[Rfam]
RNA sequence: UUCAGUUCGUGCGACGAGGUCUCCGGCCCGCUCACAACUCCCUGGCGCACCUUCCCCGGUGCCAGGCAGUACCGACGAAAUCGAGCGGGCGGGGACCUGGUCGCAUGAGCGGUCGAGC
Numbered sequence: 001u002u003c004a005g006u007u008c009g010u011g012c013g014a015c016g017a018g019g020u021c022u023c024c025g026g027c028c029c030g031c032u033c034a035c036a037a038c039u040c041c042c043u044g045g046c047g048c049a050c051c052u053u054c055c056c057c058g059g060u061g062c063c064a065g066g067c068a069g070u071a072c073c074g075a076c077g078a079a080a081u082c083g084a085g086c087g088g089g090c091g092g093g094g095a096c097c098u099g100g101u102c103g104c105a106u107g108a109g110c111g112g113u114c115g116a117g118c
Stems, first nucleotide, its partner, number of pairs: 010105006018097002021094005027089007037070003041066008
The record is a 118-nucleotide RNA from Phytoactinopolyspora mesophila, which matches "mraW RNA" in Rfam. Lineage of the source: Bacteria > Actinomycetota > Jiangellales > Jiangellaceae > Phytoactinopolyspora.